Description: A member of the RNA family "Actino-pnp RNA" from Micromonospora globbae, 70 nucleotides long. It is annotated as a cis-regulatory element.
RNA sequence: ACCGGUCUCCGGUAGUGGCCCCCGGGCACCCGGCAUCCGCCGACCCCGGGCGCUUCGAUCGAAGACCGGC
Numbered sequence: 001a002c003c004g005g006u007c008u009c010c011g012g013u014a015g016u017g018g019c020c021c022c023c024g025g026g027c028a029c030c031c032g033g034c035a036u037c038c039g040c041c042g043a044c045c046c047c048g049g050g051c052g053c054u055u056c057g058a059u060c061g062a063a064g065a066c067c068g069g070c
Base pairs, nucleotide, nucleotide: 002069003068004067005066006065007064010061011060012059013058017054018053019052021050022049023048024047025046026045029042